Notes:
A member of the RNA family "MIR1435 microRNA precursor family" from Paspalum vaginatum, 201 nucleotides long. The match comes from Rfam's covariance-model search (94 bits). NCBI's taxonomy places the organism under Eukaryota, commelinids, Poales, Paspalinae, Paspalum.

RNA sequence: UUAGCUUUGAACUAAUUCAAACUUAUCUAACUUUGGCAAAGUUUAUUGAAAAAUAUAUUAACAUAUAUAUUGCCAAAUAAAUGCACAACCAAUAUUUAUUACAUGGUUCAUUUAAUGAAAGUAACUUGGUGUUGUAGAUAUUUGUGCAUUUUUCUAUAAACCUGGUCAAAGCUAGAGAAGUUUGCUUUGGACAAAGCUAGA
Number, nucleotide and partner (000 for none) at each position: 001u000002u000003a000004g000005c196006u195007u194008u193009g192010a000011a000012c190013u189014a188015a187016u000017u000018c184019a183020a182021a181022c180023u179024u178025a000026u176027c175028u000029a000030a000031c000032u170033u169034u168035g167036g166037c000038a000039a000040a000041g000042u000043u000044u000045a000046u156047u000048g154049a153050a152051a151052a150053a149054u000055a000056u146057a145058u144059u000060a142061a141062c000063a139064u138065a000066u136067a135068u134069a133070u000071u000072g000073c129074c128075a127076a126077a000078u124079a000080a000081a000082u000083g000084c000085a000086c000087a000088a000089c000090c000091a000092a000093u000094a000095u000096u000097u000098a000099u000100u000101a000102c000103a000104u000105g000106g000107u000108u000109c000110a000111u000112u000113u000114a000115a000116u000117g000118a000119a000120a000121g000122u000123a000124a078125c000126u076127u075128g074129g073130u000131g000132u000133u069134g068135u067136a066137g000138a064139u063140a000141u061142u060143u000144g058145u057146g056147c000148a000149u053150u052151u051152u050153u049154c048155u000156a046157u000158a000159a000160a000161c000162c000163u000164g000165g000166u036167c035168a034169a033170a032171g000172c000173u000174a000175g027176a026177g000178a024179a023180g022181u021182u020183u019184g018185c000186u000187u015188u014189g013190g012191a000192c009193a008194a007195a006196g005197c000198u000199a000200g000201a000